[Rfam]
RNA sequence: CUGCAUGUUAAACCAAGAGCUAUGGCUUAGCAAAUAGCCACAGGAUCUCCAACAACAUGCAAGAACAAAAUGGAAGAGACUUUGGCUUCUCAGGCUUUGUUAGCUGCAGAUGUCACUCGACUCUCCUACACAA
Numbered sequence: 001c002u003g004c005a006u007g008u009u010a011a012a013c014c015a016a017g018a019g020c021u022a023u024g025g026c027u028u029a030g031c032a033a034a035u036a037g038c039c040a041c042a043g044g045a046u047c048u049c050c051a052a053c054a055a056c057a058u059g060c061a062a063g064a065a066c067a068a069a070a071u072g073g074a075a076g077a078g079a080c081u082u083u084g085g086c087u088u089c090u091c092a093g094g095c096u097u098u099g100u101u102a103g104c105u106g107c108a109g110a111u112g113u114c115a116c117u118c119g120a121c122u123c124u125c126c127u128a129c130a131c132a133a
Stems, first nucleotide, its partner, number of pairs: 013043001019038005072126002075124004089112001091106003